[Rfam]
RNA sequence: UGUUUUCUGAUGUCGCAGAUACUGCAUCAGGAACUGAUUGGAUAAUGUACGGUCACCAUCAGUUCCCAAUGCAUUGCCUUCAGCAUCUAUUCA
Numbered sequence: 001u002g003u004u005u006u007c008u009g010a011u012g013u014c015g016c017a018g019a020u021a022c023u024g025c026a027u028c029a030g031g032a033a034c035u036g037a038u039u040g041g042a043u044a045a046u047g048u049a050c051g052g053u054c055a056c057c058a059u060c061a062g063u064u065c066c067c068a069a070u071g072c073a074u075u076g077c078c079u080u081c082a083g084c085a086u087c088u089a090u091u092c093a
Base pairs, nucleotide, nucleotide: 023073024072025071026070027069030066031065032064033063034062035061036060037059039058040057041056
Dot-bracket structure: ......................(((((..((((((((.(((..............)))))))))))..)))))....................
The record is a 93-nucleotide sequence from Callorhinchus milii, which matches "mir-217 microRNA precursor family" in Rfam.
The family has 28 seed sequences and 698 matches in Rfam 15.1.
Rfam links the family to the GO terms miRNA-mediated post-transcriptional gene silencing and RISC complex.
The base pairs follow the family's consensus structure, which was predicted with RNAalifold.
The organism belongs to Callorhinchus, within Eukaryota.
A search with the family's covariance model found it, with a score of 99 bits.